[Rfam]
RNA sequence: AUUGCAAAACGUUCUAUCGCUGCCCUUCACCGGGCGGAGGAAAGUCCGGGCAACACAGAGCAUCCUGCUUCCUAACGGGAAGGCGCCCACAGCGGGCGACAGCAAGUGCCACAGAGAAUAUACCGCCCUUCGCGGGGUAAGGGUGAAAACGUGAGGUAAGAGCUCACGGCUUUGCCGGGCGACCGGUAUCGCGGUAAACCUCAGGAGUUGAAAAACCAAAUAGGUCCUGGAAGCGGAGCUGCUCGCUCCCUUAGCGAAAGCUACGCCAGGAUGGGUAGGUUGCUUGAACCUGCCGGCAACGGCAGGGCCAGAUAAAUGAUAGAAGCCCUUUUUAUAAGGGAACAGAACCCGGCUUAUAAUUUUGCUGCUGAA
Numbered sequence: 001a002u003u004g005c006a007a008a009a010c011g012u013u014c015u016a017u018c019g020c021u022g023c024c025c026u027u028c029a030c031c032g033g034g035c036g037g038a039g040g041a042a043a044g045u046c047c048g049g050g051c052a053a054c055a056c057a058g059a060g061c062a063u064c065c066u067g068c069u070u071c072c073u074a075a076c077g078g079g080a081a082g083g084c085g086c087c088c089a090c091a092g093c094g095g096g097c098g099a100c101a102g103c104a105a106g107u108g109c110c111a112c113a114g115a116g117a118a119u120a121u122a123c124c125g126c127c128c129u130u131c132g133c134g135g136g137g138u139a140a141g142g143g144u145g146a147a148a149a150c151g152u153g154a155g156g157u158a159a160g161a162g163c164u165c166a167c168g169g170c171u172u173u174g175c176c177g178g179g180c181g182a183c184c185g186g187u188a189u190c191g192c193g194g195u196a197a198a199c200c201u202c203a204g205g206a207g208u209u210g211a212a213a214a215a216c217c218a219a220a221u222a223g224g225u226c227c228u229g230g231a232a233g234c235g236g237a238g239c240u241g242c243u244c245g246c247u248c249c250c251u252u253a254g255c256g257a258a259a260g261c262u263a264c265g266c267c268a269g270g271a272u273g274g275g276u277a278g279g280u281u282g283c284u285u286g287a288a289c290c291u292g293c294c295g296g297c298a299a300c301g302g303c304a305g306g307g308c309c310a311g312a313u314a315a316a317u318g319a320u321a322g323a324a325g326c327c328c329u330u331u332u333u334a335u336a337a338g339g340g341a342a343c344a345g346a347a348c349c350c351g352g353c354u355u356a357u358a359a360u361u362u363u364g365c366u367g368c369u370g371a372a
Base pairs, nucleotide, nucleotide: 002367004365005364006363007362008361009360011357012324013323014322015321016320017319018318020037021036022035023034024033025032042355043354044353046352047351048350049349050348051210052209053208054207063206064205065204066203067202068082069081070080071079072078083100084098085097086096087095101201102200106199107198108195109194110193123142124141125138126137127136128135129134150168151167152166153165154164155163173188174187175186176185177184178183214281215280216279217278224272225271226270227269228268229267289306290305291304292303293302294301295300